[Rfam]
RNA: Group II catalytic intron D1-D4-2
Organism: Pedobacter sp. Leaf216
RNA sequence: GAGGGUAGGCCCCUCGGUAUCGGCUUACAGGAGCAGGUACCAAACCGCCUCUGAGCUGCUUGGAUUAAGUGUCCUGGUGGUGAGCGUCAGAGGAAAAGGCAUCUUAAAGGUGUCAGGU
Number, nucleotide and partner (000 for none) at each position: 001g015002a014003g013004g012005g011006u000007a000008g000009g000010c000011c005012c004013c003014u002015c001016g041017g040018u039019a038020u037021c036022g000023g034024c033025u032026u031027a000028c000029a000030g000031g026032a025033g024034c023035a000036g021037g020038u019039a018040c017041c016042a000043a000044a000045c000046c117047g000048c093049c092050u000051c090052u089053g088054a087055g081056c080057u000058g078059c077060u076061u000062g074063g073064a072065u071066u000067a000068a000069g000070u000071g065072u064073c063074c062075u000076g060077g059078u058079g000080g056081u055082g000083a000084g000085c000086g000087u054088c053089a052090g051091a000092g049093g048094a000095a000096a000097a000098g114099g113100c112101a111102u110103c109104u000105u000106a000107a000108a000109g103110g102111u101112g100113u099114c098115a000116g000117g046118u000